[Rfam]
RNA: Small nucleolar RNA SNORD82
Organism: Chloebia gouldiae
RNA sequence: AGCACAAGUGAUGAUUAUAAGGGACUUAAUACUGAAAUAUGAUGUCAUUUUUGAGCAAUUCCUGAUGUGC
Number, nucleotide and partner (000 for none) at each position: 001a000002g070003c069004a068005c067006a066007a000008g000009u000010g000011a000012u000013g000014a000015u000016u000017a000018u000019a000020a000021g000022g000023g000024a000025c000026u000027u000028a000029a000030u000031a000032c000033u000034g000035a000036a000037a000038u000039a000040u000041g000042a000043u000044g000045u000046c000047a000048u000049u000050u000051u000052u000053g000054a000055g000056c000057a000058a000059u000060u000061c000062c000063u000064g000065a000066u006067g005068u004069g003070c002